RNA: Small nucleolar RNA SNORA1
RNA sequence: AGCCUUGUUCUAGAUGGAAAUGGGCUCUAUUAUUCACGGUGUCCAAAAGUUGUUAAUGUGGCCACUCUAAGACAUAGGUUAUGCUUCCAUCACAGCAAGUUUUUUGCAGUGCUGACAAUGAGACACGUAAUAUUU
Numbered sequence: 001a002g003c004c005u006u007g008u009u010c011u012a013g014a015u016g017g018a019a020a021u022g023g024g025c026u027c028u029a030u031u032a033u034u035c036a037c038g039g040u041g042u043c044c045a046a047a048a049g050u051u052g053u054u055a056a057u058g059u060g061g062c063c064a065c066u067c068u069a070a071g072a073c074a075u076a077g078g079u080u081a082u083g084c085u086u087c088c089a090u091c092a093c094a095g096c097a098a099g100u101u102u103u104u105u106g107c108a109g110u111g112c113u114g115a116c117a118a119u120g121a122g123a124c125a126c127g128u129a130a131u132a133u134u135u
Base pairs, nucleotide, nucleotide: 002062003061004060006058007057008056021045022044023043024042025041027039074128075127078124088114089113091111092110093109